[Rfam]
Source information: Rfam assigns this 98-nucleotide RNA from Caenorhabditis elegans to the family "mir-253 microRNA precursor family". Rfam's curators put it in the seed alignment. Pairs were carried over by alignment from the consensus structure, which was predicted with RNAalifold. For this family Rfam cites "The microRNAs of Caenorhabditis elegans" (Lim et al., Genes Dev, 2003).
RNA sequence: UUGUUCCGAUCGCCGCUCUUUUCACACACCUCACUAACACUGACCACCGAUGCAUAGAUGUUAGUAGGCGUUGUGGGAAGGGCGGCGACAGUGAACGU
Numbered sequence: 001u002u003g004u005u006c007c008g009a010u011c012g013c014c015g016c017u018c019u020u021u022u023c024a025c026a027c028a029c030c031u032c033a034c035u036a037a038c039a040c041u042g043a044c045c046a047c048c049g050a051u052g053c054a055u056a057g058a059u060g061u062u063a064g065u066a067g068g069c070g071u072u073g074u075g076g077g078a079a080g081g082g083c084g085g086c087g088a089c090a091g092u093g094a095a096c097g098u
Stems, first nucleotide, its partner, number of pairs: 002097005010088017027070001029068003033065007040057003